[Rfam]
Eukaryotic large subunit ribosomal RNA: a 490-nucleotide part of an RNA from Entomortierella parvispora. Pairs were carried over by alignment from the consensus structure, which is taken from published work. The source organism's lineage runs through Eukaryota, Mortierellomycotina, Mortierellomycetes, Mortierellales and Entomortierella.
RNA sequence: CCUGCCGAAGUUUCCCUCAGGAUAGCAGAAACUCGUUCAGUUUUAUGAGGUAAAGCGAAUGAUUAGAGGCCUUGGGGCUGAAACAGCCUUAACCUAUUCUCAAACUUUAAAUAUGUAAGAAGUCCUUGCUGCUUAAUUGAGCCUGGACAUUUGAAUGAGAGUUUCUAGUGGGCCAUUUUUGGUAAGCAGAACUGGCGAUGCGGGAUGAACCGAACGCGAAUUUAAGGCGCCGGAAUACACGCUCAUCAGACACCACAAAAGGUGUUAGUUCAUCUAGACAGCAGGACGGUGGCCAUGGAAGUCGGAAUCCGCUAAGGAGUGUGUAACAACUCACCUGCCGAAUGAACUAGCCCUGAAAAUGGAUGGCGCUCAAGCGUGUUGCCCAUAAUUCGCCGUCAGGGUAAAAGCGAAGCCCUGACGAGUAGGCAGGCGUGGAGGUUGUGAAGAAGCUUUGGACGUAAGUCCGAGUGAAACGGCCUCUAGUGCAGAU
Numbered sequence: 001c002c003u004g005c006c007g008a009a010g011u012u013u014c015c016c017u018c019a020g021g022a023u024a025g026c027a028g029a030a031a032c033u034c035g036u037u038c039a040g041u042u043u044u045a046u047g048a049g050g051u052a053a054a055g056c057g058a059a060u061g062a063u064u065a066g067a068g069g070c071c072u073u074g075g076g077g078c079u080g081a082a083a084c085a086g087c088c089u090u091a092a093c094c095u096a097u098u099c100u101c102a103a104a105c106u107u108u109a110a111a112u113a114u115g116u117a118a119g120a121a122g123u124c125c126u127u128g129c130u131g132c133u134u135a136a137u138u139g140a141g142c143c144u145g146g147a148c149a150u151u152u153g154a155a156u157g158a159g160a161g162u163u164u165c166u167a168g169u170g171g172g173c174c175a176u177u178u179u180u181g182g183u184a185a186g187c188a189g190a191a192c193u194g195g196c197g198a199u200g201c202g203g204g205a206u207g208a209a210c211c212g213a214a215c216g217c218g219a220a221u222u223u224a225a226g227g228c229g230c231c232g233g234a235a236u237a238c239a240c241g242c243u244c245a246u247c248a249g250a251c252a253c254c255a256c257a258a259a260a261g262g263u264g265u266u267a268g269u270u271c272a273u274c275u276a277g278a279c280a281g282c283a284g285g286a287c288g289g290u291g292g293c294c295a296u297g298g299a300a301g302u303c304g305g306a307a308u309c310c311g312c313u314a315a316g317g318a319g320u321g322u323g324u325a326a327c328a329a330c331u332c333a334c335c336u337g338c339c340g341a342a343u344g345a346a347c348u349a350g351c352c353c354u355g356a357a358a359a360u361g362g363a364u365g366g367c368g369c370u371c372a373a374g375c376g377u378g379u380u381g382c383c384c385a386u387a388a389u390u391c392g393c394c395g396u397c398a399g400g401g402u403a404a405a406a407g408c409g410a411a412g413c414c415c416u417g418a419c420g421a422g423u424a425g426g427c428a429g430g431c432g433u434g435g436a437g438g439u440u441g442u443g444a445a446g447a448a449g450c451u452u453u454g455g456a457c458g459u460a461a462g463u464c465c466g467a468g469u470g471a472a473a474c475g476g477c478c479u480c481u482a483g484u485g486c487a488g489a490u
Stems, first nucleotide, its partner, number of pairs: 001430006011024001013022003027166007041120007053108001054106002060102003065097001067095003072092006079085001122148004128142003172196004177191005201212003216393005222387001226383003235380001237379001240376003260354003264351010281338005287311003293305002312316001317332001321330002394420009431485001433482010449469002455464003